[Rfam]
RNA sequence: UUCUCGCGUAAUCUCAGCUGGCAACUGUGAGUUGAUCUGAAGCCCCUCUCACAGUGGCUGCUGGGAUUAUGCUAAAC
Numbered sequence: 001u002u003c004u005c006g007c008g009u010a011a012u013c014u015c016a017g018c019u020g021g022c023a024a025c026u027g028u029g030a031g032u033u034g035a036u037c038u039g040a041a042g043c044c045c046c047u048c049u050c051a052c053a054g055u056g057g058c059u060g061c062u063g064g065g066a067u068u069a070u071g072c073u074a075a076a077c
Base pairs, nucleotide, nucleotide: 004074006072007071009069010068011067012066013065014064015063016062017061020059021058022057023055026053027052028051029050030049031048
mir-216 microRNA precursor family: a 77-nucleotide sequence from Albula goreensis. The literature on the family includes a 2008 paper in Gene by Shao et al., "Identification of novel chicken microRNAs and analysis of their genomic organization". The family's consensus secondary structure was predicted with WAR. The family has 57 seed sequences and 1,667 matches in Rfam 15.1.